RNA sequence: UGGCGCCCAAGGUGGGGCUGGAUACUGGGGCACAUCGUGAGGGAGGCGAAGGAGAAAAAGGAGUGCACUCGCUAAAUCUCAAGGAAUUCGGAGACGUGCUGCGGGAGCCUGCCGCAACCGAACUGAAGGUAAGUUGUGCCGUCCAAUUAUGGGGCAAGAAUUGAGCCAGCAUCAGAUUUAUGUCAAGCAAUUGAGAGAGGUUCUAAAGACAGGAGGAGUAAAGGUUAGGCCUGUGGAUUUAUUUCAUUUCUUUGAUUUUGUAAAGGACAUUUGUCCUU
Numbered sequence: 001u002g003g004c005g006c007c008c009a010a011g012g013u014g015g016g017g018c019u020g021g022a023u024a025c026u027g028g029g030g031c032a033c034a035u036c037g038u039g040a041g042g043g044a045g046g047c048g049a050a051g052g053a054g055a056a057a058a059a060g061g062a063g064u065g066c067a068c069u070c071g072c073u074a075a076a077u078c079u080c081a082a083g084g085a086a087u088u089c090g091g092a093g094a095c096g097u098g099c100u101g102c103g104g105g106a107g108c109c110u111g112c113c114g115c116a117a118c119c120g121a122a123c124u125g126a127a128g129g130u131a132a133g134u135u136g137u138g139c140c141g142u143c144c145a146a147u148u149a150u151g152g153g154g155c156a157a158g159a160a161u162u163g164a165g166c167c168a169g170c171a172u173c174a175g176a177u178u179u180a181u182g183u184c185a186a187g188c189a190a191u192u193g194a195g196a197g198a199g200g201u202u203c204u205a206a207a208g209a210c211a212g213g214a215g216g217a218g219u220a221a222a223g224g225u226u227a228g229g230c231c232u233g234u235g236g237a238u239u240u241a242u243u244u245c246a247u248u249u250c251u252u253u254g255a256u257u258u259u260g261u262a263a264a265g266g267a268c269a270u271u272u273g274u275c276c277u278u
Stems, first nucleotide, its partner, number of pairs: 006030003012025003035049004085130001087128001088126002095120002100116005137156003142153004162205002165201003213253006222240005263278006
Shown here is a 278-nucleotide sequence from Nannospalax galili, a member of the family "Mason-Pfizer monkey virus packaging signal". By type it is a cis-regulatory element. Rfam 15.1 lists 2,921 matches to the family in 53 species. Rfam's curators write: This family represents a group of sequences that are related to the Mason-Pfizer monkey virus (MPMV) packaging signal. The packaging signal is located in the 5' UTR and is required for specific RNA encapsidation. Taxonomically the source falls in Nannospalax (Eukaryota, Amniota, Eutheria, Spalacidae). A reference for the family is Mustafa et al. (2004), "Mutational analysis of the predicted secondary RNA structure of the Mason-Pfizer monkey virus packaging signal", Virus Res. The base pairs follow the family's consensus structure, which was predicted with PFOLD.